[Rfam]
RNA sequence: CAGUAUCUAGUAUUUCAUCGAGGCCUUCUUGAAGACCUUAAGUAUAAUUUUUGGAAACCCUGUUCUAAUAUUUUAGGACAGGGUA
Numbered sequence: 001c002a003g004u005a006u007c008u009a010g011u012a013u014u015u016c017a018u019c020g021a022g023g024c025c026u027u028c029u030u031g032a033a034g035a036c037c038u039u040a041a042g043u044a045u046a047a048u049u050u051u052u053g054g055a056a057a058c059c060c061u062g063u064u065c066u067a068a069u070a071u072u073u074u075a076g077g078a079c080a081g082g083g084u085a
Base pairs, nucleotide, nucleotide: 021038022037023036025034026033027032057084058083059082060081061080062079063078064077065076066075067074068073

Source information
Rfam assigns this 85-nucleotide sequence from Caenorhabditis briggsae to the family "SmY spliceosomal RNA". It is annotated as a spliceosomal small nuclear RNA. The sequence is in the family's curated seed alignment. The literature on the family includes a 1996 paper in RNA by Maroney et al., "Direct analysis of nematode cis- and trans-spliceosomes: a functional role for U5 snRNA in spliced leader addition trans-splicing and the identification of novel Sm snRNPs". Taxonomically the source falls in Caenorhabditis (Eukaryota, Bilateria, Nematoda, Rhabditida). The family has 61 seed sequences and 408 matches in Rfam 15.1.